[Rfam]
RNA sequence: AACCAAUAAUUUAAUAGCCCUCAUAUAUAAUGGGAAUAUGGCCCAUACGUUUCUACCUGGCUGCCGAGAACGGCCGGACUAUGAGGGAAAGCCAUAACGCC
Number, nucleotide and partner (000 for none) at each position: 001a000002a000003c000004c000005a000006a000007u000008a000009a000010u000011u000012u000013a000014a000015u000016a000017g000018c087019c086020c085021u084022c083023a082024u081025a080026u000027a000028u000029a000030a046031u045032g044033g043034g042035a000036a000037u000038a000039u000040g000041g000042c034043c033044c032045a031046u030047a000048c000049g000050u000051u000052u000053c000054u000055a000056c000057c077058u076059g075060g074061c073062u072063g071064c000065c000066g000067a000068g000069a000070a000071c063072g062073g061074c060075c059076g058077g057078a000079c000080u025081a024082u023083g022084a021085g020086g019087g018088a000089a000090a000091g000092c000093c000094a000095u000096a000097a000098c000099g000100c000101c000
RNA: Purine riboswitch aptamer
Organism: Niallia taxi